[Rfam]
RNA: mir-2807 microRNA precursor family
Organism: Bombyx mori
RNA sequence: UUAAGUCAAGUUUGUAUGGAGUUGAAACAGCUUCCUUUCGUUUGCCGCUAGGGGCGCUGUUCCAACUCCAUACAAAUUUGAAACUA
Numbered sequence: 001u002u003a004a005g006u007c008a009a010g011u012u013u014g015u016a017u018g019g020a021g022u023u024g025a026a027a028c029a030g031c032u033u034c035c036u037u038u039c040g041u042u043u044g045c046c047g048c049u050a051g052g053g054g055c056g057c058u059g060u061u062c063c064a065a066c067u068c069c070a071u072a073c074a075a076a077u078u079u080g081a082a083a084c085u086a
Stems, first nucleotide, its partner, number of pairs: 008079009018069001020067005026061004034053003040048002